This 130-nucleotide sequence from Brachypteracias leptosomus belongs to the Rfam family "U11 spliceosomal RNA". A search with the family's covariance model found it, with a score of 111 bits. Lineage of the source: Eukaryota > Chordata > Theropoda > Neoaves > Brachypteracias. Rfam 15.1 lists 2,595 matches to the family in 1,202 species. The family's RNA type in Rfam is spliceosomal small nuclear RNA. For this family Rfam cites "Evolution of spliceosomal snRNA genes in metazoan animals" (Marz et al., J Mol Evol, 2008).
RNA sequence: AAAAAGGGCUUCUGCCGUGCGUGGCACGGGGGGGCCCCACGGUCACCCCCGCGGAAUCGACAUCAAGAGAUUUCGGAAGCACAAUUUUUGCAGCAGGGGGUCGCCGGUAACCGCUUGUUCCGGCGCCCUG
Numbered sequence: 001a002a003a004a005a006g007g008g009c010u011u012c013u014g015c016c017g018u019g020c021g022u023g024g025c026a027c028g029g030g031g032g033g034g035c036c037c038c039a040c041g042g043u044c045a046c047c048c049c050c051g052c053g054g055a056a057u058c059g060a061c062a063u064c065a066a067g068a069g070a071u072u073u074c075g076g077a078a079g080c081a082c083a084a085u086u087u088u089u090g091c092a093g094c095a096g097g098g099g100g101u102c103g104c105c106g107g108u109a110a111c112c113g114c115u116u117g118u119u120c121c122g123g124c125g126c127c128c129u130g
Stems, first nucleotide, its partner, number of pairs: 008080005013026005027051006034044001036042002052075007098128004103124005109119003